[Rfam]
RNA: PyrR binding site
Organism: Apilactobacillus ozensis
RNA sequence: AAAGAUUUUAAAUUAGUCCAGAGAGGCUAGUAAGUCGGUAUAUCGAAUUGUAAAUAAAUGAACUUUAUUUACUAUAAGUGUAGCCGCUAGGUCUCUCAGACUUAGCGGCUUUUUUUG
Dot-bracket structure: ...(((((....((((((......)))))).)))))..........((.(((((((((.....))))))))).))....(.((((((((((((.....)))))))))))).).....